Rfam assigns this 73-nucleotide RNA from Bhargavaea cecembensis to the family "tRNA".
It is annotated as a transfer RNA.
A reference for the family is Lowe and Eddy (1997), "tRNAscan-SE: a program for improved detection of transfer RNA genes in genomic sequence", Nucleic Acids Res.
[Rfam]
RNA sequence: GCUUCCAUAGCUCAGUAGGCAGAGUGCUUCCAUGGUAAGGAAGAGGUCGCCGGUUCGAGCCCGGCUGGAAGCU
Numbered sequence: 001g002c003u004u005c006c007a008u009a010g011c012u013c014a015g016u017a018g019g020c021a022g023a024g025u026g027c028u029u030c031c032a033u034g035g036u037a038a039g040g041a042a043g044a045g046g047u048c049g050c051c052g053g054u055u056c057g058a059g060c061c062c063g064g065c066u067g068g069a070a071g072c073u
Base pairs, nucleotide, nucleotide: 001072002071003070004069005068006067007066010025011024012023013022027043028042029041030040031039049065050064051063052062053061